RNA sequence: GUGCACUCAACCCAAGCCAGGUGGUAUCUGCCUUUAAAAUAUGUUGACUUACAAUGGCUGUGAAUAGCACCCUCCUCAGUAGAGUACACAGUCUGCUGUUUAUACAGGUUGCCCUUACGGACCCUGAUGAUAGCC
Numbered sequence: 001g002u003g004c005a006c007u008c009a010a011c012c013c014a015a016g017c018c019a020g021g022u023g024g025u026a027u028c029u030g031c032c033u034u035u036a037a038a039a040u041a042u043g044u045u046g047a048c049u050u051a052c053a054a055u056g057g058c059u060g061u062g063a064a065u066a067g068c069a070c071c072c073u074c075c076u077c078a079g080u081a082g083a084g085u086a087c088a089c090a091g092u093c094u095g096c097u098g099u100u101u102a103u104a105c106a107g108g109u110u111g112c113c114c115u116u117a118c119g120g121a122c123c124c125u126g127a128u129g130a131u132a133g134c135c
Stems, first nucleotide, its partner, number of pairs: 002053002005050001020048001022046002026042002029039001079122002089111006